[Rfam]
RNA sequence: UGCAAUAGAAUAGGAUUUCUCAAGGGUGGUCGGAUCACUCCUAUUGAAAGGGGGUGAUGCCGUUUGACAGUUUAUCAAGCUUUGAUGCUGGCAUUUUCAUUUGCAAGUCUCAUUGUCACUGUGCUGUCAUUUUACAAAAAAAAAUAAUCCACCCUUGAGCCGACAAGCAUAAGCGGUGGACUAUUUCUUACCAAUAUGCCGACUCCCCAUGGGGAACCGACUAUUGCAUGGACCGAGUAAGCUUACGCCAUGCUCG
Dot-bracket structure: (((((.((..(....((.((((((((.(((....((((((((......))))).)))........((((((.......(..............)........(................)..))))))..................)))..)))))))).........(.(..............).)............)).((((....)))))....)).))))).....((((((.(.(...).).))))))
Numbered sequence: 001u002g003c004a005a006u007a008g009a010a011u012a013g014g015a016u017u018u019c020u021c022a023a024g025g026g027u028g029g030u031c032g033g034a035u036c037a038c039u040c041c042u043a044u045u046g047a048a049a050g051g052g053g054g055u056g057a058u059g060c061c062g063u064u065u066g067a068c069a070g071u072u073u074a075u076c077a078a079g080c081u082u083u084g085a086u087g088c089u090g091g092c093a094u095u096u097u098c099a100u101u102u103g104c105a106a107g108u109c110u111c112a113u114u115g116u117c118a119c120u121g122u123g124c125u126g127u128c129a130u131u132u133u134a135c136a137a138a139a140a141a142a143a144a145u146a147a148u149c150c151a152c153c154c155u156u157g158a159g160c161c162g163a164c165a166a167g168c169a170u171a172a173g174c175g176g177u178g179g180a181c182u183a184u185u186u187c188u189u190a191c192c193a194a195u196a197u198g199c200c201g202a203c204u205c206c207c208c209a210u211g212g213g214g215a216a217c218c219g220a221c222u223a224u225u226g227c228a229u230g231g232a233c234c235g236a237g238u239a240a241g242c243u244u245a246c247g248c249c250a251u252g253c254u255c256g
Stems, first nucleotide, its partner, number of pairs: 001228005007222002011216001016202002019159008028149003035057003038053005066128006079094001103120001169188001171186001204215004234256006241249001243247001